[Rfam]
About this RNA: A member of the RNA family "Rhizobiales sRNA Atu_C9" from Agrobacterium tumefaciens, 180 nucleotides long. The sequence is in the family's curated seed alignment. Rfam classes the family as a small RNA.
RNA sequence: UGUCAACAACAGGAGGCACCCAUGGGACUUACAAAAUCUCUCAAUGCCUUGGCAGUCGGUUUGGCGUUUUUGUUCGUAGCGAUGAUGCUUUUCAUCUGACGAGACGUGAAGACCAAACGCAGAAAAGAACCGUAGAUGACACGAGUUUGAAAAGCGCAGGUCCUGUCGGGCCUGCGCUUU
Numbered sequence: 001u002g003u004c005a006a007c008a009a010c011a012g013g014a015g016g017c018a019c020c021c022a023u024g025g026g027a028c029u030u031a032c033a034a035a036a037u038c039u040c041u042c043a044a045u046g047c048c049u050u051g052g053c054a055g056u057c058g059g060u061u062u063g064g065c066g067u068u069u070u071u072g073u074u075c076g077u078a079g080c081g082a083u084g085a086u087g088c089u090u091u092u093c094a095u096c097u098g099a100c101g102a103g104a105c106g107u108g109a110a111g112a113c114c115a116a117a118c119g120c121a122g123a124a125a126a127g128a129a130c131c132g133u134a135g136a137u138g139a140c141a142c143g144a145g146u147u148u149g150a151a152a153a154g155c156g157c158a159g160g161u162c163c164u165g166u167c168g169g170g171c172c173u174g175c176g177c178u179u180u
Base pairs, nucleotide, nucleotide: 015048016047017046018045024040025039026038027037151180152179153178154177155176156175157174158173159172160171161170162169163168